[Rfam]
RNA: GP20-b RNA
RNA sequence: GGUCUGGAAUCCGAGACCUUAAAGGCGGAUUAUUCACGGGGCGCUGGUUAAAGCCCUAAAACAACCUA
Numbered sequence: 001g002g003u004c005u006g007g008a009a010u011c012c013g014a015g016a017c018c019u020u021a022a023a024g025g026c027g028g029a030u031u032a033u034u035c036a037c038g039g040g041g042c043g044c045u046g047g048u049u050a051a052a053g054c055c056c057u058a059a060a061a062c063a064a065c066c067u068a
Base pairs, nucleotide, nucleotide: 001018002017003016004015010029011028012027013026039056040055041054042053